[Rfam]
RNA sequence: GUUUGCGGGGAGUUUGUUAAAAGAAACUGGCAUGGUGAAUCCCCCUGUGCGGAGGGGCAAUCAGCGAGUAGGUAUAUGGGAUAAUCGCGGAUUCAGGUGCUGGUACUGAAUUCACCGGGAGGCACCCGGCACCAUGUGCAUGAUGAUACAGAUACGCGGCUUUAGCCCCUCUCCGGAGGGGUUUUCUUGUGGGC
Numbered sequence: 001g002u003u004u005g006c007g008g009g010g011a012g013u014u015u016g017u018u019a020a021a022a023g024a025a026a027c028u029g030g031c032a033u034g035g036u037g038a039a040u041c042c043c044c045c046u047g048u049g050c051g052g053a054g055g056g057g058c059a060a061u062c063a064g065c066g067a068g069u070a071g072g073u074a075u076a077u078g079g080g081a082u083a084a085u086c087g088c089g090g091a092u093u094c095a096g097g098u099g100c101u102g103g104u105a106c107u108g109a110a111u112u113c114a115c116c117g118g119g120a121g122g123c124a125c126c127c128g129g130c131a132c133c134a135u136g137u138g139c140a141u142g143a144u145g146a147u148a149c150a151g152a153u154a155c156g157c158g159g160c161u162u163u164a165g166c167c168c169c170u171c172u173c174c175g176g177a178g179g180g181g182u183u184u185u186c187u188u189g190u191g192g193g194c
Base pairs, nucleotide, nucleotide: 014146015145016144030137031136032135033134034133035132036131037130042057043056044055045054046053078088080086089113090112091111092110094108095107096106115129116128117127118126119125155193157191164183165182166181167180168179169178170177
Shown here is a 194-nucleotide RNA sequence from Escherichia coli, a member of the family "Gammaproteobacterial sRNA STnc100". Pairs were carried over by alignment from the consensus structure, which was predicted with CMfinder. Rfam classes the family as a small RNA.